A member of the RNA family "Potassium channel RNA editing signal" from Salmo trutta, 114 nucleotides long. Rfam 15.1 lists 14,095 matches to the family in 1,000 species. Its family is annotated with adenosine to inosine editing in the Gene Ontology.

[Rfam]
RNA sequence: GUGGGCUACGGGGACAUGUACCCUACGACUCUGGGGGGCAAGCUGGUGGGCUCCAUGUGUGCCAUCGCUGGCGUGCUCACCAUCUCCCUGCCAGUCCCUGUCAUUGUGUCCAAC
Numbered sequence: 001g002u003g004g005g006c007u008a009c010g011g012g013g014a015c016a017u018g019u020a021c022c023c024u025a026c027g028a029c030u031c032u033g034g035g036g037g038g039c040a041a042g043c044u045g046g047u048g049g050g051c052u053c054c055a056u057g058u059g060u061g062c063c064a065u066c067g068c069u070g071g072c073g074u075g076c077u078c079a080c081c082a083u084c085u086c087c088c089u090g091c092c093a094g095u096c097c098c099u100g101u102c103a104u105u106g107u108g109u110c111c112a113a114c
Stems, first nucleotide, its partner, number of pairs: 001114002004111002007108005013102004018097001020095002037077004049063003